[Rfam]
RNA: Pestivirus internal ribosome entry site (IRES) including 5'UTR SLI
Organism: Orthopestivirus ovis
RNA sequence: GUAUACGGGAGUAGCUCAUGCCCGUAUACAAAAUUGGAUAUUCCAAAACUCGAUUGGGUUAGGGAGCCCUCCUAGCGACGGCCGAACCGUGUUAACCAUACACGUAGUAGGACUAGCAGACGGGAGGACUAGCCAUCGUGGUGAGAUCCCUGAGCAGUCUAAAUCCUGAGUACAGGAUAGUCGUCAGUAGUUCAACGCAGGCACGGUUCUGCCUUGAGAUGCUACGUGGACGAGGGCAUGCCCAAGACUUGCUUUAAUCUCGGCGGGGGUCGCCGAGGUGAAAACACCUAACGGUGUUGGGGUUACAGCCUGAUAGGGUGCUGCAGAGGCCCACGAAUAGGCUAGUAUAAAAAUCUCUGCUGUACAUGGCAC
Numbered sequence: 001g002u003a004u005a006c007g008g009g010a011g012u013a014g015c016u017c018a019u020g021c022c023c024g025u026a027u028a029c030a031a032a033a034u035u036g037g038a039u040a041u042u043c044c045a046a047a048a049c050u051c052g053a054u055u056g057g058g059u060u061a062g063g064g065a066g067c068c069c070u071c072c073u074a075g076c077g078a079c080g081g082c083c084g085a086a087c088c089g090u091g092u093u094a095a096c097c098a099u100a101c102a103c104g105u106a107g108u109a110g111g112a113c114u115a116g117c118a119g120a121c122g123g124g125a126g127g128a129c130u131a132g133c134c135a136u137c138g139u140g141g142u143g144a145g146a147u148c149c150c151u152g153a154g155c156a157g158u159c160u161a162a163a164u165c166c167u168g169a170g171u172a173c174a175g176g177a178u179a180g181u182c183g184u185c186a187g188u189a190g191u192u193c194a195a196c197g198c199a200g201g202c203a204c205g206g207u208u209c210u211g212c213c214u215u216g217a218g219a220u221g222c223u224a225c226g227u228g229g230a231c232g233a234g235g236g237c238a239u240g241c242c243c244a245a246g247a248c249u250u251g252c253u254u255u256a257a258u259c260u261c262g263g264c265g266g267g268g269g270u271c272g273c274c275g276a277g278g279u280g281a282a283a284a285c286a287c288c289u290a291a292c293g294g295u296g297u298u299g300g301g302g303u304u305a306c307a308g309c310c311u312g313a314u315a316g317g318g319u320g321c322u323g324c325a326g327a328g329g330c331c332c333a334c335g336a337a338u339a340g341g342c343u344a345g346u347a348u349a350a351a352a353a354u355c356u357c358u359g360c361u362g363u364a365c366a367u368g369g370c371a372c
Base pairs, nucleotide, nucleotide: 001029002028003027004026005025006024007023008022009021068127069126070125071124072123073122075117076116080114081113082111083110088104089103090102091101092100128346129345130344131343132342133341134340136336137335138334139333140332141331142307143306145304146303147302148301149300150299152254153253154252155251156250157248158247159246160245163178164177165176166175167174168173181233182232183231184230185229187225188224189223190222191221192217193216194215195214197212198211199210200209201208234243235242236241257279258278259277260276261275262274263273264272265271266270283298284297285296286295287294288293308319309318310317311316321362323360324359325358326357327356328355